[Rfam]
RNA sequence: CAUUAGCUGGUAUUUCAAUUGAACUCUCUCUUUCUGAUGUAUCAGUGGAGAAAUUCCUAAUAUCGAGUAAAUGC
Numbered sequence: 001c002a003u004u005a006g007c008u009g010g011u012a013u014u015u016c017a018a019u020u021g022a023a024c025u026c027u028c029u030c031u032u033u034c035u036g037a038u039g040u041a042u043c044a045g046u047g048g049a050g051a052a053a054u055u056c057c058u059a060a061u062a063u064c065g066a067g068u069a070a071a072u073g074c
Base pairs, nucleotide, nucleotide: 001073002072003071004070
Rfam assigns this 74-nucleotide sequence from Callorhinus ursinus to the family "Small nucleolar RNA SNORD26". On this family, see Tycowski et al., Nature 1996: "A mammalian gene with introns instead of exons generating stable RNA products". The family is grouped with related families in Rfam's "SNORD26 clan". Lineage of the source: Eukaryota > Eutheria > Boreoeutheria > Otariidae > Callorhinus.